[Rfam]
The family of this 47-nucleotide RNA from Jatrophihabitans endophyticus is "L31-Actinobacteria ribosomal protein leader".
The family's RNA type in Rfam is cis-regulatory leader.
RNA sequence: CCGGCUCCGGUUCACGCACCGUGCCCGCACCGUGCGACCCGGCGGCC
Dot-bracket structure: ..(((.((((....(((((.(((....))).)))))..))))..)))